[Rfam]
Rfam assigns this 54-nucleotide RNA from Clupea harengus to the family "UnaL2 LINE 3' element". From the family's description: The eel long interspersed element (LINE) UnaL2 and its partner short interspersed element (SINE) share a conserved 3' tail containing a stem-loop that is critical for their retrotransposition. Presumably, the first step of retrotransposition is the recognition of their 3' tails by UnaL2-encoded reverse transcriptase. The solution structure of a 17-nucleotide RNA derived from the 3' tail of UnaL2 was determined by NMR. It scores 62 bits against the family's covariance model. By type it is a cis-regulatory element. Rfam 15.1 lists 493,311 matches to the family in 99 species.
RNA sequence: UAUAAUGUCCUUUGUAAGUCGCUUUGGAUAAAAGCAUCUGCUAAAUGACUAAAU
Numbered sequence: 001u002a003u004a005a006u007g008u009c010c011u012u013u014g015u016a017a018g019u020c021g022c023u024u025u026g027g028a029u030a031a032a033a034g035c036a037u038c039u040g041c042u043a044a045a046u047g048a049c050u051a052a053a054u
Stems, first nucleotide, its partner, number of pairs: 013043001014041003021035005